[Rfam]
RNA sequence: GGGCCGGGGGGCGACUGGCGCUGAACGUGGGCACACCACGGGGAAGCCCCCGACACGGACUUCUGAUCGCGCGCCUGGGUCGAUCCC
Numbered sequence: 001g002g003g004c005c006g007g008g009g010g011g012c013g014a015c016u017g018g019c020g021c022u023g024a025a026c027g028u029g030g031g032c033a034c035a036c037c038a039c040g041g042g043g044a045a046g047c048c049c050c051c052g053a054c055a056c057g058g059a060c061u062u063c064u065g066a067u068c069g070c071g072c073g074c075c076u077g078g079g080u081c082g083a084u085c086c087c
Stems, first nucleotide, its partner, number of pairs: 003054001005052001007051006015043002017075005027039004064082005